[Rfam]
RNA: ffh sRNA
Organism: Roseovarius nanhaiticus
RNA sequence: CCAUGCCGGGAUCGCCCUCCGUCAGCGCGUCUGCGCCCACGGGGGCAAAACUG
Numbered sequence: 001c002c003a004u005g006c007c008g009g010g011a012u013c014g015c016c017c018u019c020c021g022u023c024a025g026c027g028c029g030u031c032u033g034c035g036c037c038c039a040c041g042g043g044g045g046c047a048a049a050a051c052u053g
Base pairs, nucleotide, nucleotide: 016045017044018043019042020041021040022039025036026035027034028033